[Rfam]
RNA sequence: CCCGGUCCGACUCCUCCCCCCCGAGUCGGCCGUGGAGACGACCCCCGCUCUCCCCCCCGGCGGGGGUCGUCGCAU
Numbered sequence: 001c002c003c004g005g006u007c008c009g010a011c012u013c014c015u016c017c018c019c020c021c022c023g024a025g026u027c028g029g030c031c032g033u034g035g036a037g038a039c040g041a042c043c044c045c046c047g048c049u050c051u052c053c054c055c056c057c058c059g060g061c062g063g064g065g066g067u068c069g070u071c072g073c074a075u
Stems, first nucleotide, its partner, number of pairs: 002035002005031001007029007037071013
This 75-nucleotide sequence from Streptomyces actuosus belongs to the Rfam family "6C RNA". Pairs were carried over by alignment from the consensus structure, which is taken from published work. The source organism's lineage runs through Bacteria, Actinomycetota, Actinomycetes, Streptomycetaceae and Streptomyces. It is annotated as a cis-regulatory element.